Overview:
A member of the RNA family "Glycine riboswitch aptamer" from Herbiconiux salviae, 106 nucleotides long. Taxonomically the source falls in Herbiconiux (Bacteria, Bacillati, Actinomycetes, Micrococcales).
RNA sequence: CCACUCUGGAAAGCAGUCCGCGGCAUCGACGGCGGCUCGCCCACGGUGAAAACCCGCCCCGCUGACCCGGGAGGGUGAAACUCUCAGGCCCGAUGACAGAGGGGGA
Numbered sequence: 001c002c003a004c005u006c007u008g009g010a011a012a013g014c015a016g017u018c019c020g021c022g023g024c025a026u027c028g029a030c031g032g033c034g035g036c037u038c039g040c041c042c043a044c045g046g047u048g049a050a051a052a053c054c055c056g057c058c059c060c061g062c063u064g065a066c067c068c069g070g071g072a073g074g075g076u077g078a079a080a081c082u083c084u085c086a087g088g089c090c091c092g093a094u095g096a097c098a099g100a101g102g103g104g105g106a
Base pairs, nucleotide, nucleotide: 001104002103004101005100006099007098008097015037016036017035018034039089040088041087043084046083048081052076053075054074055073